[Rfam]
RNA: Group II catalytic intron D1-D4-1
RNA sequence: GAACUCGCACAGCGAUGCGCGACUGAGCUGGGAGGAGUCAGCAGAGGCCAUAGUAUCCGCAUUGCGGGGAAGGGC
Numbered sequence: 001g002a003a004c005u006c007g008c009a010c011a012g013c014g015a016u017g018c019g020c021g022a023c024u025g026a027g028c029u030g031g032g033a034g035g036a037g038u039c040a041g042c043a044g045a046g047g048c049c050a051u052a053g054u055a056u057c058c059g060c061a062u063u064g065c066g067g068g069g070a071a072g073g074g075c
Base pairs, nucleotide, nucleotide: 002024005022006021007020008019010017011016038045039044047075048074049073056068057067058066059065060064